Notes
mir-31 microRNA precursor family: an 80-nucleotide RNA from Bos taurus. Its family is annotated with gene silencing by miRNA and RISC complex in the Gene Ontology. The base pairs follow the family's consensus structure, which was predicted with RNAalifold. A search with the family's covariance model found it, with a score of 58 bits.
[Rfam]
RNA sequence: GACAAGAGAGAUGGCAAUAUGUUGGCAUAGCAGGUUCGCAGUUCAACAGCUAUGCCAGCAUCUUGCCUCCUCUCCAGUUC
Number, nucleotide and partner (000 for none) at each position: 001g000002a000003c000004a000005a000006g074007a073008g072009a071010g070011a000012u000013g067014g066015c065016a064017a063018u000019a061020u060021g059022u000023u057024g056025g055026c054027a053028u052029a051030g050031c049032a000033g000034g000035u000036u000037c000038g000039c000040a000041g000042u000043u000044c000045a000046a000047c000048a000049g031050c030051u029052a028053u027054g026055c025056c024057a023058g000059c021060a020061u019062c000063u017064u016065g015066c014067c013068u000069c000070c010071u009072c008073u007074c006075c000076a000077g000078u000079u000080c000